[Rfam]
RNA: glmS glucosamine-6-phosphate activated ribozyme aptamer
RNA sequence: AACUAAAUAUUAGCGCCAGAACUUAAGAGGAGCGUUUAUCUUAAGUUGACGAGGAUGGGGUUUAUCGAAGAUUCGGCGGGUUCCCCACGGUAUCGCACUACCGUUAACGAUUAGCAAAACUAUAAAGUGAUUUAUGGCACAAAUCUAAUCCGGUGUUAAGA
Numbered sequence: 001a002a003c004u005a006a007a008u009a010u011u012a013g014c015g016c017c018a019g020a021a022c023u024u025a026a027g028a029g030g031a032g033c034g035u036u037u038a039u040c041u042u043a044a045g046u047u048g049a050c051g052a053g054g055a056u057g058g059g060g061u062u063u064a065u066c067g068a069a070g071a072u073u074c075g076g077c078g079g080g081u082u083c084c085c086c087a088c089g090g091u092a093u094c095g096c097a098c099u100a101c102c103g104u105u106a107a108c109g110a111u112u113a114g115c116a117a118a119a120c121u122a123u124a125a126a127g128u129g130a131u132u133u134a135u136g137g138c139a140c141a142a143a144u145c146u147a148a149u150c151c152g153g154u155g156u157u158a159a160g161a
Base pairs, nucleotide, nucleotide: 020047021046022045023044024043025042026041027040056087057086058085059084060083065076066075067074068073088103089102090101091100092099109150110149111148112147113146120137121136122135123134124133125132126131